Annotation:
The family of this 95-nucleotide RNA sequence from Frondihabitans sp. PAMC 28766 is "Glycine riboswitch aptamer". It scores 60 bits against the family's covariance model.
RNA sequence: GAACACAACGCGGGAGAGCGCACGACCCCCGGGUCGGCCACCGAAGGAGCAAGCUUCCCCGCCAAUCUCUCAGGUAGACGUACCGCGUCGUGUCG
Numbered sequence: 001g002a003a004c005a006c007a008a009c010g011c012g013g014g015a016g017a018g019c020g021c022a023c024g025a026c027c028c029c030c031g032g033g034u035c036g037g038c039c040a041c042c043g044a045a046g047g048a049g050c051a052a053g054c055u056u057c058c059c060c061g062c063c064a065a066u067c068u069c070u071c072a073g074g075u076a077g078a079c080g081u082a083c084c085g086c087g088u089c090g091u092g093u094c095g
Base pairs, nucleotide, nucleotide: 006090008088009087010086011085012084013083020038021037040075041074042073043071044070047069048068049067053062054061